[Rfam]
RNA sequence: UUCGUGCGGCGUCACGGCCAUACUUUUCCCCUGUUGCUCAUGGCUGCGAAUCUCUACGCGGCUCGUUCGAGUGUCAGGCCGUGUCCAGAGCGACAUGGAACGUCUUAGCACCCGAUAUUCUCCUCUUCUUUACAUUCCACGAAGGGGAAUGGGUCGGUGGUUCCAGACAUCA
Number, nucleotide and partner (000 for none) at each position: 001u000002u000003c000004g000005u000006g000007c000008g000009g000010c000011g000012u000013c000014a000015c000016g000017g000018c000019c000020a084021u083022a082023c081024u000025u000026u000027u000028c000029c000030c000031c000032u000033g000034u000035u000036g072037c071038u070039c069040a000041u000042g062043g000044c061045u060046g000047c000048g000049a000050a000051u000052c000053u000054c000055u000056a000057c000058g000059c000060g045061g044062c042063u000064c000065g000066u000067u000068c000069g039070a038071g037072u036073g000074u000075c000076a000077g000078g000079c000080c000081g023082u022083g021084u020085c000086c000087a000088g000089a000090g000091c000092g000093a000094c000095a000096u166097g164098g163099a162100a161101c160102g000103u000104c000105u000106u000107a000108g000109c000110a000111c000112c000113c000114g000115a000116u151117a150118u149119u148120c147121u146122c145123c144124u000125c000126u000127u000128c000129u000130u000131u000132a000133c000134a000135u000136u000137c000138c000139a000140c000141g000142a000143a000144g123145g122146g121147g120148a119149a118150u117151g116152g000153g000154u000155c000156g000157g000158u000159g000160g101161u100162u099163c098164c097165a000166g096167a000168c000169a000170u000171c000172a000

This 172-nucleotide sequence from Schizophyllum commune belongs to the Rfam family "small nucleolar RNA snR35". The base pairs follow the family's consensus structure, which was predicted with RNAalifold. Taxonomically the source falls in Schizophyllum commune (Eukaryota, Agaricomycotina, Agaricomycetidae, Schizophyllum). Rfam classes the family as an H/ACA-box small nucleolar RNA. Its family is annotated with RNA processing and nucleolus in the Gene Ontology. It scores 36 bits against the family's covariance model.